Shown here is a 120-nucleotide RNA from Flavobacterium sp. CS20, a member of the family "6S-Flavo RNA".
The family's consensus secondary structure is taken from published work.
RNA sequence: ACUCAACACUUUACAAUUAAAAAGGGUGAGUUUUGGUUGCUAAAACAUGCCGUUAUGUUUUACACAUUAGACGGAAGUUUGAUCAUCCAUGUAGCCCUAAUCCUGUUUUAUAAGGAGUUU
Numbered sequence: 001a002c003u004c005a006a007c008a009c010u011u012u013a014c015a016a017u018u019a020a021a022a023a024g025g026g027u028g029a030g031u032u033u034u035g036g037u038u039g040c041u042a043a044a045a046c047a048u049g050c051c052g053u054u055a056u057g058u059u060u061u062a063c064a065c066a067u068u069a070g071a072c073g074g075a076a077g078u079u080u081g082a083u084c085a086u087c088c089a090u091g092u093a094g095c096c097c098u099a100a101u102c103c104u105g106u107u108u109u110a111u112a113a114g115g116a117g118u119u120u
Stems, first nucleotide, its partner, number of pairs: 023098005034089003038085001043080003050074004